[Rfam]
RNA sequence: GCGCGCUGGCGGGGUUCGGUGAAAUUCCGAACCGGCGGUGACACGGCGAGUCCGUGAAGCCCGCGACCCGGCACUGUGGACGGCGACGACCACGGUGGCGGUGGAUCCGGUGAGAGUCCGGAGCCGACGGUCAAAGUCCGGAAGGGAGCAAGCGCGC
Numbered sequence: 001g002c003g004c005g006c007u008g009g010c011g012g013g014g015u016u017c018g019g020u021g022a023a024a025u026u027c028c029g030a031a032c033c034g035g036c037g038g039u040g041a042c043a044c045g046g047c048g049a050g051u052c053c054g055u056g057a058a059g060c061c062c063g064c065g066a067c068c069c070g071g072c073a074c075u076g077u078g079g080a081c082g083g084c085g086a087c088g089a090c091c092a093c094g095g096u097g098g099c100g101g102u103g104g105a106u107c108c109g110g111u112g113a114g115a116g117u118c119c120g121g122a123g124c125c126g127a128c129g130g131u132c133a134a135a136g137u138c139c140g141g142a143a144g145g146g147a148g149c150a151a152g153c154g155c156g157c
Stems, first nucleotide, its partner, number of pairs: 003155005009149002017029003031137002033126002035064004059124002068101002106122005128140003